Rfam assigns this 129-nucleotide RNA sequence from Otolemur garnettii to the family "Small nucleolar RNA SNORA20". By type it is an H/ACA-box small nucleolar RNA. The family has 17 seed sequences and 437 matches in Rfam 15.1. Rfam links the family to the GO terms nucleolus and RNA processing. The match comes from Rfam's covariance-model search (62 bits). Pairs were carried over by alignment from the consensus structure, which was predicted with ILM. ACA20 is a member of the H/ACA class of snoRNA that guide the sites of modification of uridines to pseudouridines.

RNA sequence: CUUCCCAUUACUUGAUGCUAUAAUUUCACAAUGAUACAAGCAAUUAUAUGCACAAGAUAAAAUAAUAUUGGGCCACUGUAAAUUGACAUAAAGUAACCAUUUUUCUCUCCUCUGUAUCACUGGACAUUG
Numbered sequence: 001c002u003u004c005c006c007a008u009u010a011c012u013u014g015a016u017g018c019u020a021u022a023a024u025u026u027c028a029c030a031a032u033g034a035u036a037c038a039a040g041c042a043a044u045u046a047u048a049u050g051c052a053c054a055a056g057a058u059a060a061a062a063u064a065a066u067a068u069u070g071g072g073c074c075a076c077u078g079u080a081a082a083u084u085g086a087c088a089u090a091a092a093g094u095a096a097c098c099a100u101u102u103u104u105c106u107c108u109c110c111u112c113u114g115u116a117u118c119a120c121u122g123g124a125c126a127u128u129g
Base pairs, nucleotide, nucleotide: 003057004056008052014044016042017041018040019039021036022035024034025033068123069122070121071120075117077116078115079114080113085109086108088106090103091102092101093100094099